[Rfam]
RNA sequence: GAACUACUAGACGAAGUGAAUGGGUUGCGGCCGGUGCUUGUUACUUGGCCAAACCCAGGAAAGUCCCCGGGCCCUCAACUGCAGAGAUGCAGGCUCGGAAACGAGCUAAGCUUUAAGGCCGUUGGGGUUUGUCCUUAUCCUUGGUAAGGCGGGGCAGAGACGAGUGUGGAGCCCUAAUGACCUUAAUGCCGAAGUAACUUGGCCGAUGCCCACAGUUAUUCACUUGGUCCCUAAGCUUGGACUAACUGAACGGGGCUUAUGAUCUAGUAGUU
Numbered sequence: 001g002a003a004c005u006a007c008u009a010g011a012c013g014a015a016g017u018g019a020a021u022g023g024g025u026u027g028c029g030g031c032c033g034g035u036g037c038u039u040g041u042u043a044c045u046u047g048g049c050c051a052a053a054c055c056c057a058g059g060a061a062a063g064u065c066c067c068c069g070g071g072c073c074c075u076c077a078a079c080u081g082c083a084g085a086g087a088u089g090c091a092g093g094c095u096c097g098g099a100a101a102c103g104a105g106c107u108a109a110g111c112u113u114u115a116a117g118g119c120c121g122u123u124g125g126g127g128u129u130u131g132u133c134c135u136u137a138u139c140c141u142u143g144g145u146a147a148g149g150c151g152g153g154g155c156a157g158a159g160a161c162g163a164g165u166g167u168g169g170a171g172c173c174c175u176a177a178u179g180a181c182c183u184u185a186a187u188g189c190c191g192a193a194g195u196a197a198c199u200u201g202g203c204c205g206a207u208g209c210c211c212a213c214a215g216u217u218a219u220u221c222a223c224u225u226g227g228u229c230c231c232u233a234a235g236c237u238u239g240g241a242c243u244a245a246c247u248g249a250a251c252g253g254g255g256c257u258u259a260u261g262a263u264c265u266a267g268u269a270g271u272u
Stems, first nucleotide, its partner, number of pairs: 002272010014225006022056004061258003065255004080091004092107006131195001135193002140188001145185003152174004162167001227242004
RNase MRP: a 272-nucleotide RNA sequence from Gossypium mustelinum. Rfam describes the family as follows. RNase MRP is an enzymatically active ribonucleoprotein with two distinct roles in eukaryotes. Its family is annotated with ribonuclease MRP complex, ribonuclease MRP activity and rRNA processing in the Gene Ontology. Its Rfam clan is "RNaseP clan".